[Rfam]
A member of the RNA family "ctRNA" from Lactococcus lactis, 84 nucleotides long. Its family is annotated with mRNA binding and plasmid copy number maintenance in the Gene Ontology. For this family Rfam cites "Involvement of antisense RNA in replication control of the lactococcal plasmid pND324" (Duan et al., FEMS Microbiol Lett, 1998). The source organism's lineage runs through Bacteria, Bacillati, Bacilli, Lactobacillales and Lactococcus. Rfam describes the family as follows. Rolling circle replication plasmids contain a number of mechanisms to maintain a low copy number. One of these methods is to transcribe a small RNA called ctRNA (for counter-transcribed RNA) than is transcribed on the opposite strand to RepB the replication initiation protein. ctRNA binds to the mRNA of repB and causes translational inhibition. By type it is an antisense RNA. The sequence is in the family's curated seed alignment.
Nucleotides: 084
Base pairs, nucleotide, nucleotide: 004025005024006023007022008021009020010019011018032072033071034070035069036068037067038066039065040064041063042062043061
Number, partner (000 for none) and nucleotide at each position: 001000u002000g003000u004025a005024a006023a007022u008021a009020c010019g011018c012000u013000c014000c015000u016000u017000u018011g019010c020009g021008u022007g023006u024005u025004u026000u027000a028000g029000u030000c031000u032072g033071g034070c035069a036068u037067a038066g039065a040064g041063a042062a043061a044000g045000u046000c047000a048000u049000u050000u051000a052000g053000c054000g055000g056000u057000g058000u059000a060000u061043u062042u063041u064040c065039u066038c067037u068036a069035u070034g071033u072032u073000u074000u075000u076000a077000u078000u079000a080000u081000a082000u083000c084000a